Annotation:
A member of the RNA family "chrB-a RNA" from Tabrizicola sp. TH137, 89 nucleotides long. Rfam classes the family as a cis-regulatory element. The family's consensus secondary structure is taken from published work.
RNA sequence: UUCAUGGGGAUUGCGCGCUCCCCACGAGGCGUCAGCUGAAGACCGCGUUUCAAAUCACCUGAAACAUGACCCUCGGAGGGACGCGGAUG
Dot-bracket structure: ....((((((........))))))....................((((((............................)))))).....